[Rfam]
RNA sequence: CGUAUUAUGCUCGCGCCAGCCCCCGUGUAGCCACAUUUUCCACGGACGGCGGCCUGUGCUUAGCACAGUUGCCUAUUAACCCGGUCAAG
Numbered sequence: 001c002g003u004a005u006u007a008u009g010c011u012c013g014c015g016c017c018a019g020c021c022c023c024c025g026u027g028u029a030g031c032c033a034c035a036u037u038u039u040c041c042a043c044g045g046a047c048g049g050c051g052g053c054c055u056g057u058g059c060u061u062a063g064c065a066c067a068g069u070u071g072c073c074u075a076u077u078a079a080c081c082c083g084g085u086c087a088a089g
Stems, first nucleotide, its partner, number of pairs: 015053003019050003023045005054068006
The family of this 89-nucleotide sequence from [Pantoea] beijingensis is "Peptidase-S11 RNA". The family's consensus secondary structure is taken from published work. It is annotated as a cis-regulatory element.